A member of the RNA family "Group I catalytic intron" from Richelia intracellularis, 262 nucleotides long. A search with the family's covariance model found it, with a score of 94 bits. A reference for the family is Cech (1990), "Self-splicing of group I introns", Annu Rev Biochem. The base pairs follow the family's consensus structure, which is taken from published work. The organism belongs to Richelia intracellularis, within Bacteria. Gene Ontology term of the family: Group I intron splicing.

RNA sequence: CUACGGACUUAAUUUAUUUGAGCCUUAGAGGAGAAAUCCUGUAAGUGUAAGCUCUCAAACUCAGGGAAACCUAAAUCUGGCGUCAGACAGGGCAAUCCUGAGCCAAGUCUUGUUGACUACUUGUAGAACUUUGCCUUCUAAUUGCGAUAAUUCAGAUGGUAAAUAACAGAAGAGUUAACAAGAAAGGUGCAGAGACUCGACGGGAGCCGCCCUAACGUAAAGCCGAGGGUGAAGAGAGAGUCCAAUUCUCAAAACCUAAUGU
Numbered sequence: 001c002u003a004c005g006g007a008c009u010u011a012a013u014u015u016a017u018u019u020g021a022g023c024c025u026u027a028g029a030g031g032a033g034a035a036a037u038c039c040u041g042u043a044a045g046u047g048u049a050a051g052c053u054c055u056c057a058a059a060c061u062c063a064g065g066g067a068a069a070c071c072u073a074a075a076u077c078u079g080g081c082g083u084c085a086g087a088c089a090g091g092g093c094a095a096u097c098c099u100g101a102g103c104c105a106a107g108u109c110u111u112g113u114u115g116a117c118u119a120c121u122u123g124u125a126g127a128a129c130u131u132u133g134c135c136u137u138c139u140a141a142u143u144g145c146g147a148u149a150a151u152u153c154a155g156a157u158g159g160u161a162a163a164u165a166a167c168a169g170a171a172g173a174g175u176u177a178a179c180a181a182g183a184a185a186g187g188u189g190c191a192g193a194g195a196c197u198c199g200a201c202g203g204g205a206g207c208c209g210c211c212c213u214a215a216c217g218u219a220a221a222g223c224c225g226a227g228g229g230u231g232a233a234g235a236g237a238g239a240g241u242c243c244a245a246u247u248c249u250c251a252a253a254a255c256c257u258a259a260u261g262u
Stems, first nucleotide, its partner, number of pairs: 005025002008022005029040003051207004056202001061101006070092003102188002108182001110180001115176004192243001194242005210229004252262001